A member of the RNA family "Small nucleolar RNA SNORA31" from Mandrillus leucophaeus, 136 nucleotides long. Rfam classes the family as an H/ACA-box small nucleolar RNA. Pairs were carried over by alignment from the consensus structure, which was predicted with RNAalifold. Gene Ontology terms of the family: nucleolus and RNA processing. Rfam 15.1 lists 2,094 matches to the family in 626 species.
[Rfam]
RNA sequence: AUGCAUCUAUUUGACAGACCUGGAGUAGUUACUGUCUGCUGCUAAGGUUUCCACCACAGAUGCAAGAAAAAAAAAUAUUCUCGUGCUUUCUGUCUGUCUGAUUGUGGCUGCUGAGAUCGAAUAGAGGAAUACAGUG
Dot-bracket structure: .(((((((...((..(((((...(((((.......))))).....))))).))....))))))).............(((((...(..(((..(.(((.......))).)...)))..)....)))))........
The source organism's lineage runs through Eukaryota, Tetrapoda, Theria, Eutheria and Mandrillus. About the family: ACA31 (SNORA31) belongs to the H/ACA class of snoRNAs which are thought to guide the sites of modification of uridines to pseudouridines. ACA31 is predicted to guide the pseudouridylation of U3713 in 28S rRNA and U218 in 18S rRNA. This family includes the mouse homologue snoMBI-161.